[Rfam]
RNA sequence: AAAGGCAUCCCAUUUCUACUCCAUUUCAAUAGAAAUGGGGGAGCCGUAAAAAAGGAGGAAAACCCCGCCGGGCCGGCGGUGCGGCAGUGUGGAGACCUGUCGUAACGUCCGCAGGACCAAGCGCCUGCGGACAAGGGGGUAGGUGCGAAGGCUCUGCCCUUACGGCCCAUGCGCAUGGCA
Numbered sequence: 001a002a003a004g005g006c007a008u009c010c011c012a013u014u015u016c017u018a019c020u021c022c023a024u025u026u027c028a029a030u031a032g033a034a035a036u037g038g039g040g041g042a043g044c045c046g047u048a049a050a051a052a053a054g055g056a057g058g059a060a061a062a063c064c065c066c067g068c069c070g071g072g073c074c075g076g077c078g079g080u081g082c083g084g085c086a087g088u089g090u091g092g093a094g095a096c097c098u099g100u101c102g103u104a105a106c107g108u109c110c111g112c113a114g115g116a117c118c119a120a121g122c123g124c125c126u127g128c129g130g131a132c133a134a135g136g137g138g139g140u141a142g143g144u145g146c147g148a149a150g151g152c153u154c155u156g157c158c159c160u161u162a163c164g165g166c167c168c169a170u171g172c173g174c175a176u177g178g179c180a
Base pairs, nucleotide, nucleotide: 008040009039010038011037012036013035014034015033016032017031018030065079066078067077068076070168071167072166073165074164075163080104081103082102083101084100085099086098087097089096090095107132108131109130110129111128112127113126114125115124135161136160137159138158139157140156141155142154145152146151